A member of the RNA family "hya RNA" from Mycobacterium intracellulare, 72 nucleotides long. The base pairs follow the family's consensus structure, which is taken from published work.
RNA sequence: AGCGCCGCGCAAGUGGGCCGACGUUCGACUCCGGCGGUGCAGGAGCCCCGGCCCGGCUCCGGAAAGCUGCAG
Numbered sequence: 001a002g003c004g005c006c007g008c009g010c011a012a013g014u015g016g017g018c019c020g021a022c023g024u025u026c027g028a029c030u031c032c033g034g035c036g037g038u039g040c041a042g043g044a045g046c047c048c049c050g051g052c053c054c055g056g057c058u059c060c061g062g063a064a065a066g067c068u069g070c071a072g
Stems, first nucleotide, its partner, number of pairs: 003039006042060006